[Rfam]
RNA sequence: ACAGAAAGGAUAUGAUCGUUUGACCGGAAUUUUAUGAUAUUUUUCGGUCAAAAGGAAAGUCCGGGCUCCGCCGGAAAAAAUGCCGGGUAAUGACCGGGCAGCCGACGAUUUUUUCGCCGGCUGACAGAAAGUACCACAGAAAACAUACCGCGUAUGAGUUUUCGUACGUAAGGGUGAAAAGGCGAGGUAAGAGCUCACCGUGUUUCCGGUAACGGAAACGACAGGGAAACCUCAUUUGGAGCAAGGCCGAAUAGGCAGUUAUGUUUUCCGGACAGUUACGCUGCGGGUAGGCUGCUAAAAACACGGAGCGAUCCGUGUUUCAGAUAGAUGAUCAUACCGGCCGUAAUUACGGCCGGUACAGAACCCGGCUUAUAUCCUUUCUGUUUUU
Numbered sequence: 001a002c003a004g005a006a007a008g009g010a011u012a013u014g015a016u017c018g019u020u021u022g023a024c025c026g027g028a029a030u031u032u033u034a035u036g037a038u039a040u041u042u043u044u045c046g047g048u049c050a051a052a053a054g055g056a057a058a059g060u061c062c063g064g065g066c067u068c069c070g071c072c073g074g075a076a077a078a079a080a081u082g083c084c085g086g087g088u089a090a091u092g093a094c095c096g097g098g099c100a101g102c103c104g105a106c107g108a109u110u111u112u113u114u115c116g117c118c119g120g121c122u123g124a125c126a127g128a129a130a131g132u133a134c135c136a137c138a139g140a141a142a143a144c145a146u147a148c149c150g151c152g153u154a155u156g157a158g159u160u161u162u163c164g165u166a167c168g169u170a171a172g173g174g175u176g177a178a179a180a181g182g183c184g185a186g187g188u189a190a191g192a193g194c195u196c197a198c199c200g201u202g203u204u205u206c207c208g209g210u211a212a213c214g215g216a217a218a219c220g221a222c223a224g225g226g227a228a229a230c231c232u233c234a235u236u237u238g239g240a241g242c243a244a245g246g247c248c249g250a251a252u253a254g255g256c257a258g259u260u261a262u263g264u265u266u267u268c269c270g271g272a273c274a275g276u277u278a279c280g281c282u283g284c285g286g287g288u289a290g291g292c293u294g295c296u297a298a299a300a301a302c303a304c305g306g307a308g309c310g311a312u313c314c315g316u317g318u319u320u321c322a323g324a325u326a327g328a329u330g331a332u333c334a335u336a337c338c339g340g341c342c343g344u345a346a347u348u349a350c351g352g353c354c355g356g357u358a359c360a361g362a363a364c365c366c367g368g369c370u371u372a373u374a375u376c377c378u379u380u381c382u383g384u385u386u387u388u
Stems, first nucleotide, its partner, number of pairs: 001384010011336007019052011057371003061368005066241004074269001076267001078237005083097004098125001099123006126232002131230002134225002148173002150169008181199002184196003200222001201220008245293004255284005264272002300319008
RNA: Bacterial RNase P class A
Organism: Treponema parvum